[Rfam]
RNA sequence: GGUUAGCGACAGGGGCGCUCGGGAAGCCGGGCUGAGAUGAACCCUUAGAACCUGAACCGGAUAAUGCCGGCGGAGGGAGGCGCGCGAGAUAGUCU
Numbered sequence: 001g002g003u004u005a006g007c008g009a010c011a012g013g014g015g016c017g018c019u020c021g022g023g024a025a026g027c028c029g030g031g032c033u034g035a036g037a038u039g040a041a042c043c044c045u046u047a048g049a050a051c052c053u054g055a056a057c058c059g060g061a062u063a064a065u066g067c068c069g070g071c072g073g074a075g076g077g078a079g080g081c082g083c084g085c086g087a088g089a090u091a092g093u094c095u
Stems, first nucleotide, its partner, number of pairs: 006083003010079001011045004016039001017032005051076003057070004
RNA: TPP riboswitch aptamer (THI element)
Organism: Thioclava indica